The record is a 102-nucleotide RNA sequence from Desulfosporosinus sp. Tol-M, which matches "Purine riboswitch aptamer" in Rfam. Lineage of the source: Bacteria > Bacillota > Clostridia > Eubacteriales > Desulfosporosinus.
RNA sequence: AAUAUUAAUUCAUAGGGAGUUCAUAUAACUGCGGAGAUAUGGUCCGCAAGUUUCAACCAGACUACCGUAAAUGGUCUGACUAUGAGCGAAAGUGUACCUAGG
Numbered sequence: 001a002a003u004a005u006u007a008a009u010u011c012a013u014a015g016g017g018a019g020u021u022c023a024u025a026u027a028a029c030u031g032c033g034g035a036g037a038u039a040u041g042g043u044c045c046g047c048a049a050g051u052u053u054c055a056a057c058c059a060g061a062c063u064a065c066c067g068u069a070a071a072u073g074g075u076c077u078g079a080c081u082a083u084g085a086g087c088g089a090a091a092g093u094g095u096a097c098c099u100a101g102g
Base pairs, nucleotide, nucleotide: 019087020086021085022084023083024082025081030048031047032046033045034044035043058078059077060076061075062074063073064072